Small nucleolar RNA SNORD73: a 67-nucleotide RNA sequence from Anolis carolinensis. The family's RNA type in Rfam is C/D-box small nucleolar RNA.
[Rfam]
RNA sequence: AAUGAAUGAUGACACCUUGUUUCGGUCCCAUAUGAGUCAGUGAUUAUGCUUUUCUAAUGCUGACAUU
Numbered sequence: 001a002a003u004g005a006a007u008g009a010u011g012a013c014a015c016c017u018u019g020u021u022u023c024g025g026u027c028c029c030a031u032a033u034g035a036g037u038c039a040g041u042g043a044u045u046a047u048g049c050u051u052u053u054c055u056a057a058u059g060c061u062g063a064c065a066u067u
Stems, first nucleotide, its partner, number of pairs: 001067004